[Rfam]
RNA sequence: AGGAGAAUUGCUGGGCAAAUCUCCUUUGGCAGAUUGUUCACUCAAAAGUAUUGCAUGGCUCAUAUGCAUACCAUAGUUGUUACUAUCUGCCAAAGAGAACUUGCCCUGUAAUGCACCC
Numbered sequence: 001a002g003g004a005g006a007a008u009u010g011c012u013g014g015g016c017a018a019a020u021c022u023c024c025u026u027u028g029g030c031a032g033a034u035u036g037u038u039c040a041c042u043c044a045a046a047a048g049u050a051u052u053g054c055a056u057g058g059c060u061c062a063u064a065u066g067c068a069u070a071c072c073a074u075a076g077u078u079g080u081u082a083c084u085a086u087c088u089g090c091c092a093a094a095g096a097g098a099a100c101u102u103g104c105c106c107u108g109u110a111a112u113g114c115a116c117c118c
Stems, first nucleotide, its partner, number of pairs: 005114001007112003011108001013106006022098002024095001027092008
RNA: mir-399 microRNA precursor family